mir-22 microRNA precursor family: an 87-nucleotide sequence from Pangasianodon hypophthalmus. It scores 76 bits against the family's covariance model. For this family Rfam cites "Identification of novel genes coding for small expressed RNAs" (Lagos-Quintana et al., Science, 2001). Gene Ontology terms of the family: RISC complex and miRNA-mediated post-transcriptional gene silencing.

[Rfam]
RNA sequence: GGCUAACCUACAUCAGUUCUUCUCUGGCAAACUUUAUGUUCCUAUUCACAUGCUAAAGCUGCCAGCUGAAGAGCUGUUGUGGUCAGC
Numbered sequence: 001g002g003c004u005a006a007c008c009u010a011c012a013u014c015a016g017u018u019c020u021u022c023u024c025u026g027g028c029a030a031a032c033u034u035u036a037u038g039u040u041c042c043u044a045u046u047c048a049c050a051u052g053c054u055a056a057a058g059c060u061g062c063c064a065g066c067u068g069a070a071g072a073g074c075u076g077u078u079g080u081g082g083u084c085a086g087c
Stems, first nucleotide, its partner, number of pairs: 006083002010080003017073006026063003030060001032058005